[Rfam]
RNA sequence: AAUUGCAUCGGUGAUGGAGCUCACCAACAUCACCCGAAAGGGUUAAUGGCUCCUGCGAAGGU
Numbered sequence: 001a002a003u004u005g006c007a008u009c010g011g012u013g014a015u016g017g018a019g020c021u022c023a024c025c026a027a028c029a030u031c032a033c034c035c036g037a038a039a040g041g042g043u044u045a046a047u048g049g050c051u052c053c054u055g056c057g058a059a060g061g062u
Base pairs, nucleotide, nucleotide: 010025011024012023013022016053017052018051019050020049021048032043033042034041035040
RNA: Fluoride riboswitch aptamer (crcB RNA motif)